The record is a 58-nucleotide RNA from Eugenia uniflora, which matches "Plastid-psbA-2 3UTR RNA" in Rfam.
Plastid psbA-2 is a non-coding RNA (ncRNA) present in plastids. It was identified in inverted repeat sequences in the 3 prime untranslate region (3UTR) of photosystem II quinone-binding protein (psbA).
The family's RNA type in Rfam is cis-regulatory element.
The source organism's lineage runs through Eukaryota, Viridiplantae, Streptophytina, malvids and Eugenia.
For this family Rfam cites "Retrograde signaling in plants: A critical review focusing on the GUN pathway and beyond" (Richter et al., Plant Commun, 2023).
The family's consensus secondary structure was predicted with LocARNA.

[Rfam]
RNA sequence: AAGGAACAAUAACCAAUUUCUUAUUCUAUCAAGAGUGUUGGUUAUUGCUCCUUUAUUU
Number, nucleotide and partner (000 for none) at each position: 001a053002a052003g051004g050005a049006a000007c047008a046009a045010u044011a043012a042013c041014c037015a036016a000017u000018u000019u034020c033021u032022u031023a000024u000025u000026c000027u000028a000029u000030c000031a022032a021033g020034a019035g000036u015037g014038u000039u000040g000041g013042u012043u011044a010045u009046u008047g007048c000049u005050c004051c003052u002053u001054u000055a000056u000057u000058u000